[Rfam]
RNA sequence: CGGAAAAAUCGUCUCACGCGGGGAACCCAACCGUGGCUCUUCAGCGCCUAGGGGUGAAGCUCGUAAGCCGAGCCGGACCUCCCGUCCGAACCCGACAGCUAACCUCGCAGGGAAACAGGGAGAAUAU
Numbered sequence: 001c002g003g004a005a006a007a008a009u010c011g012u013c014u015c016a017c018g019c020g021g022g023g024a025a026c027c028c029a030a031c032c033g034u035g036g037c038u039c040u041u042c043a044g045c046g047c048c049u050a051g052g053g054g055u056g057a058a059g060c061u062c063g064u065a066a067g068c069c070g071a072g073c074c075g076g077a078c079c080u081c082c083c084g085u086c087c088g089a090a091c092c093c094g095a096c097a098g099c100u101a102a103c104c105u106c107g108c109a110g111g112g113a114a115a116c117a118g119g120g121a122g123a124a125u126a127u
Stems, first nucleotide, its partner, number of pairs: 002015001018108006028051001052093003060072004075087004
Rfam assigns this 127-nucleotide sequence from Schaalia odontolytica to the family "c-di-AMP riboswitch aptamer (ydaO/yuaA leader)". This family represents a conserved RNA structure found upstream of the ydaO and yuaA genes in Bacillus subtilis and related genes in other bacteria. Taxonomically the source falls in Schaalia (Bacteria, Actinomycetota, Actinomycetes, Actinomycetales). Its family is annotated with regulation of gene expression and cyclic-di-AMP binding in the Gene Ontology. It scores 56 bits against the family's covariance model.